The record is an 80-nucleotide RNA from Bagarius yarrelli, which matches "mir-252 microRNA precursor family" in Rfam.
The literature on the family includes a 2009 paper in BMC Genomics by Li et al., "Direct sequencing and expression analysis of a large number of miRNAs in Aedes aegypti and a multi-species survey of novel mosquito miRNAs".
NCBI's taxonomy places the organism under Eukaryota, Metazoa, Gnathostomata, Osteoglossocephalai, Bagarius.
Gene Ontology terms of the family: miRNA-mediated post-transcriptional gene silencing and RISC complex.
The family is grouped with related families in Rfam's "mir-252 microRNA precursor family".
It scores 46 bits against the family's covariance model.
Rfam 15.1 lists 422 matches to the family in 306 species.
RNA sequence: CACCUUUUUCAAGUAGAGUGCUGCAGGUACUACAGCUCCCCCUAGCUGUAGUACCUGCAGCACUCUACUUGAAAAAGGUG
Numbered sequence: 001c002a003c004c005u006u007u008u009u010c011a012a013g014u015a016g017a018g019u020g021c022u023g024c025a026g027g028u029a030c031u032a033c034a035g036c037u038c039c040c041c042c043u044a045g046c047u048g049u050a051g052u053a054c055c056u057g058c059a060g061c062a063c064u065c066u067a068c069u070u071g072a073a074a075a076a077g078g079u080g
Stems, first nucleotide, its partner, number of pairs: 001080007010071009023058009